[Rfam]
The record is a 325-nucleotide sequence from Hujiaoplasma nucleasis, which matches "Bacterial RNase P class B" in Rfam. Clan: RNaseP clan. For this family Rfam cites "The Ribonuclease P Database" (Brown, Nucleic Acids Res, 1999).
RNA sequence: GUCAUUAGGUAAUCGAGCGUGAAAACGUUAGGAAAGUCCAUGCUAGCACAAACUGAGAUGUUUGUAGUGAUUGUGCUAAACGAACAAAUAAGUUUAGGCACCAUUUGGUGACGGCGAAGAAAAGGAUUAACGGCCUGAGUAUUCUUAAAGUGCCACAGUGACGAAUCAUAGAGAAUAUCUAUGGGUGAAACGGGUAAACCCCUCAAGCUAGAAACCCAAAUUUUGGUAGGGGCAUGACUGUGCAAGAAAUGAAUUGACACAGUUGGCGGGAAACCGGAGAUAAAUGAUUACCACGCUUUUUAGCGACAGAACAUGGCUUAUAAAU
Numbered sequence: 001g002u003c004a005u006u007a008g009g010u011a012a013u014c015g016a017g018c019g020u021g022a023a024a025a026c027g028u029u030a031g032g033a034a035a036g037u038c039c040a041u042g043c044u045a046g047c048a049c050a051a052a053c054u055g056a057g058a059u060g061u062u063u064g065u066a067g068u069g070a071u072u073g074u075g076c077u078a079a080a081c082g083a084a085c086a087a088a089u090a091a092g093u094u095u096a097g098g099c100a101c102c103a104u105u106u107g108g109u110g111a112c113g114g115c116g117a118a119g120a121a122a123a124g125g126a127u128u129a130a131c132g133g134c135c136u137g138a139g140u141a142u143u144c145u146u147a148a149a150g151u152g153c154c155a156c157a158g159u160g161a162c163g164a165a166u167c168a169u170a171g172a173g174a175a176u177a178u179c180u181a182u183g184g185g186u187g188a189a190a191c192g193g194g195u196a197a198a199c200c201c202c203u204c205a206a207g208c209u210a211g212a213a214a215c216c217c218a219a220a221u222u223u224u225g226g227u228a229g230g231g232g233c234a235u236g237a238c239u240g241u242g243c244a245a246g247a248a249a250u251g252a253a254u255u256g257a258c259a260c261a262g263u264u265g266g267c268g269g270g271a272a273a274c275c276g277g278a279g280a281u282a283a284a285u286g287a288u289u290a291c292c293a294c295g296c297u298u299u300u301u302a303g304c305g306a307c308a309g310a311a312c313a314u315g316g317c318u319u320a321u322a323a324a325u
Stems, first nucleotide, its partner, number of pairs: 004325003007321001008292007016029005034319003038316005043211005048065006071206003075202001076097006098112001099110004113201002116144003124135002127132001150199002152195003166184007215231003235265007267276003295304003
Overview:
The family's RNA type in Rfam is ribozyme. The match comes from Rfam's covariance-model search (266 bits). The source organism's lineage runs through Bacteria, Mycoplasmatota, Mollicutes, Hujiaoplasmataceae and Hujiaoplasma. Pairs were carried over by alignment from the consensus structure, which is taken from published work.